[Rfam]
RNA: U12 minor spliceosomal RNA
RNA sequence: AUGUCUUAAACUAAUGAGUGAGGAAAAUAACAAACCAGGGUAACAUCUGGUUCCGCACUGCUAAUGUGGGAUGAAUUUUUGAGCAGGUCGUCCCUUGCAGGAUCUACCUACUUUCUGGGACCUCUAGUUGCAGUGAUCUGCUCG
Numbered sequence: 001a002u003g004u005c006u007u008a009a010a011c012u013a014a015u016g017a018g019u020g021a022g023g024a025a026a027a028u029a030a031c032a033a034a035c036c037a038g039g040g041u042a043a044c045a046u047c048u049g050g051u052u053c054c055g056c057a058c059u060g061c062u063a064a065u066g067u068g069g070g071a072u073g074a075a076u077u078u079u080u081g082a083g084c085a086g087g088u089c090g091u092c093c094c095u096u097g098c099a100g101g102a103u104c105u106a107c108c109u110a111c112u113u114u115c116u117g118g119g120a121c122c123u124c125u126a127g128u129u130g131c132a133g134u135g136a137u138c139u140g141c142u143c144g
Base pairs, nucleotide, nucleotide: 004023005022006021007020008019033052034051035050036049037048038047039046054070056068057067058066081143082142083141084140085139086138087137088136089135090134091133095127097125099123100122101121103119104118105117106116